RNA sequence: AGAGUUUUUCCCUCCUCUUAAAUCGAAGGGC
Numbered sequence: 001a002g003a004g005u006u007u008u009u010c011c012c013u014c015c016u017c018u019u020a021a022a023u024c025g026a027a028g029g030g031c
Stems, first nucleotide, its partner, number of pairs: 001018004010030004014025001
This 31-nucleotide RNA from Tobamovirus kyuri belongs to the Rfam family "Pseudoknot of upstream pseudoknot domain (UPD) of the 3'UTR".
For this family Rfam cites "A central pseudoknotted three-way junction imposes tRNA-like mimicry and the orientation of three 5' upstream pseudoknots in the 3' terminus of tobacco mosaic virus RNA" (Felden et al., RNA, 1996).
Rfam classes the family as a cis-regulatory element.
The base pairs follow the family's consensus structure, which is taken from published work.
Its family is annotated with regulation of viral transcription in the Gene Ontology.